Background
This 317-nucleotide RNA from Nyctiprogne leucopyga belongs to the Rfam family "7SK RNA". A reference for the family is Blencowe (2002), "Transcription: surprising role for an elusive small nuclear RNA", Curr Biol. Lineage of the source: Eukaryota > Deuterostomia > Dinosauria > Neognathae > Nyctiprogne. Rfam's curators write: 7SK was discovered as an abundant small nuclear RNA in the mid-70s but a possible function has only recently been suggested. Two independent studies have found that 7SK RNA binds the CDK9/cyclin T complex (known as elongation factor P-TEFb). P-TEFb activates transcription by phosphorylating the C-terminal domain of RNA polymerase II. This process is negatively regulated by the 7SK RNP. The secondary structure of 7SK RNA shown here was proposed by Wasserman and Steitz on the basis of chemical modification and enzymatic cleavage experiments.
RNA sequence: GGAUGUGAGGGCGAUCUGGCUGCGACAUCUGUCACCCCAUUGAUCGCCAGGGUUGAUUCGGCUGAUCUGGCUGGCUAGGCGGGUGUCCCCUUCCUCCCUCACCACUCCAUGUGCGUCCCUCCCGAGGCUGCGCACUCGGUCGAAGAGGACGACCUUCCCCGAUAGAGGCAGGUACCAUUCAUAGGUCAAGGGUUUACUUACGGUAGCAGCUCCGCUGCUAGAACCUCCAAACUUCUUUUUUAAUUUUAUAUUAAAAAAAUUAAAAAGAGUGAUAAGGAGAUUGACUGGUGGAGUAACUCCCUGGCAUGCCAGUCAGA
Number, nucleotide and partner (000 for none) at each position: 001g108002g107003a106004u000005g102006u101007g100008a099009g098010g097011g096012c000013g093014a092015u000016c000017u000018g090019g089020c000021u000022g000023c000024g087025a086026c085027a084028u083029c082030u081031g080032u079033c078034a000035c074036c073037c070038c069039a068040u000041u000042g067043a066044u065045c064046g062047c061048c060049a000050g000051g000052g000053u000054u000055g000056a000057u000058u000059c000060g048061g047062c046063u000064g045065a044066u043067c042068u039069g038070g037071c000072u000073g036074g035075c000076u000077a000078g033079g032080c031081g030082g029083g028084u027085g026086u025087c024088c000089c019090c018091u000092u014093c013094c000095u000096c011097c010098c009099u008100c007101a006102c005103c000104a000105c000106u003107c002108c001109a000110u000111g000112u000113g000114c000115g000116u172117c171118c168119c167120u166121c165122c139123c138124g137125a136126g000127g135128c000129u000130g000131c000132g000133c000134a000135c127136u125137c124138g123139g122140u162141c161142g160143a000144a000145g000146a000147g158148g157149a156150c000151g000152a000153c000154c000155u000156u149157c148158c147159c000160c142161g141162a140163u000164a000165g121166a120167g119168g118169c000170a000171g117172g116173u000174a000175c000176c000177a000178u000179u000180c000181a000182u000183a000184g000185g000186u000187c000188a000189a000190g000191g000192g000193u000194u000195u000196a000197c000198u000199u000200a000201c000202g000203g297204u000205a000206g000207c000208a000209g000210c293211u292212c000213c290214g289215c288216u287217g286218c283219u000220a000221g000222a000223a000224c000225c279226u278227c277228c276229a000230a000231a000232c000233u000234u000235c000236u000237u000238u000239u000240u000241u000242a000243a000244u000245u000246u000247u000248a000249u000250a000251u000252u000253a000254a000255a000256a000257a000258a000259a000260u000261u000262a000263a000264a000265a000266a000267g000268a000269g000270u000271g000272a000273u000274a000275a000276g228277g227278a226279g225280a000281u000282u000283g218284a000285c000286u217287g216288g215289u214290g213291g000292a211293g210294u000295a000296a000297c203298u000299c000300c000301c000302u000303g000304g000305c000306a000307u000308g000309c000310c000311a000312g000313u000314c000315a000316g000317a000